Record summary:
Rfam assigns this 131-nucleotide RNA sequence from Candidatus Thiodiazotropha endolucinida to the family "t44 RNA". The base pairs follow the family's consensus structure, which was predicted with LocARNA. Rfam's curators write: This family consists of a number of bacterial RNA genes of between 135 and 170 bases in length. The literature on the family includes a 2002 paper in Nucleic Acids Res by Tjaden et al., "Transcriptome analysis of Escherichia coli using high-density oligonucleotide probe arrays". The family's RNA type in Rfam is small RNA. The organism belongs to Candidatus Thiodiazotropha, within Bacteria.
RNA sequence: AUUAACGGCGGCAAACGACACACACAUAUCGACACAUGGGCCUGGGUGCCGGAAGAUGUCGUGAUUAUAAGUAAUAAUUACUUAUAAAUCAGUCUCUUAUGGUUGGGUCAUGGGAUAUGUGGAGGUAUAAC
Numbered sequence: 001a002u003u004a005a006c007g008g009c010g011g012c013a014a015a016c017g018a019c020a021c022a023c024a025c026a027u028a029u030c031g032a033c034a035c036a037u038g039g040g041c042c043u044g045g046g047u048g049c050c051g052g053a054a055g056a057u058g059u060c061g062u063g064a065u066u067a068u069a070a071g072u073a074a075u076a077a078u079u080a081c082u083u084a085u086a087a088a089u090c091a092g093u094c095u096c097u098u099a100u101g102g103u104u105g106g107g108u109c110a111u112g113g114g115a116u117a118u119g120u121g122g123a124g125g126u127a128u129a130a131c
Stems, first nucleotide, its partner, number of pairs: 023121008035112005041106002048103004